[Rfam]
RNA sequence: AUACCUUGAACCUAUGAGUAAGGAAAAAUAACAAGUGGUGUGACACCUGAAUUCUCACCGCUAAUGUGAAACAAAUUUUGAAGCAGAUAAAGUUUGCCCCUAAAGUGACUCACCUACUUUGUAGGAUGCCUGGGUUUAGCAGUCUGCCCA
Numbered sequence: 001a002u003a004c005c006u007u008g009a010a011c012c013u014a015u016g017a018g019u020a021a022g023g024a025a026a027a028a029u030a031a032c033a034a035g036u037g038g039u040g041u042g043a044c045a046c047c048u049g050a051a052u053u054c055u056c057a058c059c060g061c062u063a064a065u066g067u068g069a070a071a072c073a074a075a076u077u078u079u080g081a082a083g084c085a086g087a088u089a090a091a092g093u094u095u096g097c098c099c100c101u102a103a104a105g106u107g108a109c110u111c112a113c114c115u116a117c118u119u120u121g122u123a124g125g126a127u128g129c130c131u132g133g134g135u136u137u138a139g140c141a142g143u144c145u146g147c148c149c150a
Stems, first nucleotide, its partner, number of pairs: 004023005033053002036050001038048001055069004086148001088146001091145002094142004100134002103131001105129003109125002112122002
RNA: U12 minor spliceosomal RNA